[Rfam]
c-di-AMP riboswitch aptamer (ydaO/yuaA leader): a 144-nucleotide RNA sequence from Austwickia chelonae. A search with the family's covariance model found it, with a score of 73 bits. Lineage of the source: Bacteria > Micrococcales > Dermatophilaceae > Austwickia > Austwickia chelonae. Rfam links the family to the GO terms regulation of gene expression and cyclic-di-AMP binding.
RNA sequence: CACGUCACUACGCCUUGGCAGGAGCGGGGGACCCAUAGUGGUCUCUAAGAGGCCUUGGGGUGAAGUCGCGAACCCUUCGAUUGCGACCGGGCAUUCUCCUGCCCGAACCCGACAGCUCACCUCGCAGGCGGCUGGAGAGGUUAU
Numbered sequence: 001c002a003c004g005u006c007a008c009u010a011c012g013c014c015u016u017g018g019c020a021g022g023a024g025c026g027g028g029g030g031a032c033c034c035a036u037a038g039u040g041g042u043c044u045c046u047a048a049g050a051g052g053c054c055u056u057g058g059g060g061u062g063a064a065g066u067c068g069c070g071a072a073c074c075c076u077u078c079g080a081u082u083g084c085g086a087c088c089g090g091g092c093a094u095u096c097u098c099c100u101g102c103c104c105g106a107a108c109c110c111g112a113c114a115g116c117u118c119a120c121c122u123c124g125c126a127g128g129c130g131g132c133u134g135g136a137g138a139g140g141u142u143a144u
Base pairs, nucleotide, nucleotide: 001127005023006022024125025124026123027122028121029120034057035056058110059109060108066086067085068084069083070082071081089104090103091102092101